[Rfam]
RNA sequence: CGUCGCCCGCUUCAUGGAGGUCAAGGCCGUCAUGACUGAGCGAUUAUCUAAUCUGGUCGUGCCGCUGCCCCACAAGGACACCGACAUGCGCAUUCAAGAUACCGGCGGCUCUAUGCCUGCAAGGUCUUGCGCAGUUUCCCUGCUGAAUCGUCGGCAGGGUGACGUAGAAAGCACGAUAUCUCC
Numbered sequence: 001c002g003u004c005g006c007c008c009g010c011u012u013c014a015u016g017g018a019g020g021u022c023a024a025g026g027c028c029g030u031c032a033u034g035a036c037u038g039a040g041c042g043a044u045u046a047u048c049u050a051a052u053c054u055g056g057u058c059g060u061g062c063c064g065c066u067g068c069c070c071c072a073c074a075a076g077g078a079c080a081c082c083g084a085c086a087u088g089c090g091c092a093u094u095c096a097a098g099a100u101a102c103c104g105g106c107g108g109c110u111c112u113a114u115g116c117c118u119g120c121a122a123g124g125u126c127u128u129g130c131g132c133a134g135u136u137u138c139c140c141u142g143c144u145g146a147a148u149c150g151u152c153g154g155c156a157g158g159g160u161g162a163c164g165u166a167g168a169a170a171g172c173a174c175g176a177u178a179u180c181u182c183c
Base pairs, nucleotide, nucleotide: 004042005041006040012035013034014033015032016031017030019028020027021026057176058175059174060173061172062171063083064082066080067079069077070076087133088132089131090130091129096128097127098126099125102124103123105120106119107117108116135162136161138159139158140157141156142155143154144153145152146151
A member of the RNA family "RT-15 RNA", 183 nucleotides long. It is one of the family's seed sequences.